[Rfam]
RNA sequence: AUGCCUUAAACUAAUGAGUAAGGAAAAUAACGAGCCGGGGUAACGCCUGGUUCUUCACUGCUUAUGUGAAAAGAAUUUUUGAGCGGGCACAGGUCGCCCCGUGGAGGAUCCACCUACUUUGUGGGACCUUCAGGUGUGUGAUCUGCCCG
Numbered sequence: 001a002u003g004c005c006u007u008a009a010a011c012u013a014a015u016g017a018g019u020a021a022g023g024a025a026a027a028u029a030a031c032g033a034g035c036c037g038g039g040g041u042a043a044c045g046c047c048u049g050g051u052u053c054u055u056c057a058c059u060g061c062u063u064a065u066g067u068g069a070a071a072a073g074a075a076u077u078u079u080u081g082a083g084c085g086g087g088c089a090c091a092g093g094u095c096g097c098c099c100c101g102u103g104g105a106g107g108a109u110c111c112a113c114c115u116a117c118u119u120u121g122u123g124g125g126a127c128c129u130u131c132a133g134g135u136g137u138g139u140g141a142u143c144u145g146c147c148c149g
Base pairs, nucleotide, nucleotide: 004023005022006021007020008019032053033052034051035050036049037048038047039046054070055069056068057067058066084149085148086147087146088145091144092143093142094141095140096139097138100134103131104130105129106128107127109125110124111123112122113121